[Rfam]
RNA: mir-160 microRNA precursor family
Organism: Oryza sativa
RNA sequence: AUGUGCCUGGCUCCCUGUAUGCCACUCAUCUAGAGCAACAAACUUCUGCGAGAGGUUGCCUAUGAUGGAUGGCGUGCACGGAGCCAAGCAUAU
Numbered sequence: 001a002u003g004u005g006c007c008u009g010g011c012u013c014c015c016u017g018u019a020u021g022c023c024a025c026u027c028a029u030c031u032a033g034a035g036c037a038a039c040a041a042a043c044u045u046c047u048g049c050g051a052g053a054g055g056u057u058g059c060c061u062a063u064g065a066u067g068g069a070u071g072g073c074g075u076g077c078a079c080g081g082a083g084c085c086a087a088g089c090a091u092a093u
Base pairs, nucleotide, nucleotide: 001093002092003091004090005089006088008086009085010084011083012082013081014080016078017077018076019075020074021073022072023071024070027067028066029065